Source information
Shown here is a 45-nucleotide RNA sequence from Heterostelium album, a member of the family "Class I RNA from Dictyostelium". The organism belongs to Heterostelium album, within Eukaryota. The literature on the family includes a 2004 paper in Nucleic Acids Res by Aspegren et al., "Novel non-coding RNAs in Dictyostelium discoideum and their expression during development". Dictyostelium Class I RNA was first reported for Aspegren et al. 2004 in Dictyostelium discoideum. Sucgang et al. 2011 identify putative homologs of Class I RNA in D. discoideum and D. purpureum. Avesson et al. 2011 report that Class I RNA present a down regulation during the development of social amoeba Dictyostelium discoideum, they also found that deletion of one of the Class I RNAs, DdR-21, results in aberrant development. Kjellin et al. 2020 report an extended number of expressed Class I RNA genes in class Dictyostelia, in their analysis they remark that Class I RNA appear to be unique to dictyostelid social amoebas, and they hypothesise that Class I RNAs were involved in evolution of multicellularity in Dictyostelia.
[Rfam]
Nucleotides: 045
Base pairs, nucleotide, nucleotide: 001043002042003041004040005039006038
Number, partner (000 for none) and nucleotide at each position: 001043g002042u003041u004040c005039u006038c007000a008000u009000u010000g011000c012000a013000g014000c015000a016000a017000a018000c019000a020000a021000a022000c023000u024000u025000c026000g027000c028000a029000g030000a031000a032000a033000a034000a035000c036000c037000u038006g039005a040004g041003a042002a043001c044000u045000g